RNA sequence: CGCGCUCCUCACAAUUAGUUUGUUUAUUAAUUGAGCAUGUGGCCGUCACAAGGAUGACGUAACACCAGCAGUUACGGGACUUAGUCAAUAACUGCAAAAUGGUGU
Numbered sequence: 001c002g003c004g005c006u007c008c009u010c011a012c013a014a015u016u017a018g019u020u021u022g023u024u025u026a027u028u029a030a031u032u033g034a035g036c037a038u039g040u041g042g043c044c045g046u047c048a049c050a051a052g053g054a055u056g057a058c059g060u061a062a063c064a065c066c067a068g069c070a071g072u073u074a075c076g077g078g079a080c081u082u083a084g085u086c087a088a089u090a091a092c093u094g095c096a097a098a099a100u101g102g103u104g105u
Stems, first nucleotide, its partner, number of pairs: 012033008044059005062105005068095007078086003
Shown here is a 105-nucleotide RNA, a member of the family "COG3943 RNA".